Source information
The record is a 79-nucleotide RNA from Trichoplusia ni, which matches "mir-2756 microRNA precursor family" in Rfam.

[Rfam]
RNA sequence: UCGGUAGCGUACCCUGUAGCUGCUAAGGGGCGUAGUCCUUGUAACCGCCCCUGUGCUGCUACAUUGUACUUUACUGGUU
Numbered sequence: 001u002c003g004g005u006a007g008c009g010u011a012c013c014c015u016g017u018a019g020c021u022g023c024u025a026a027g028g029g030g031c032g033u034a035g036u037c038c039u040u041g042u043a044a045c046c047g048c049c050c051c052u053g054u055g056c057u058g059c060u061a062c063a064u065u066g067u068a069c070u071u072u073a074c075u076g077g078u079u
Base pairs, nucleotide, nucleotide: 001077002076003075004074005073006072007071009069010068011067012066015063016062017061018060019059020058022056023055026052027051028050029049030048031047032046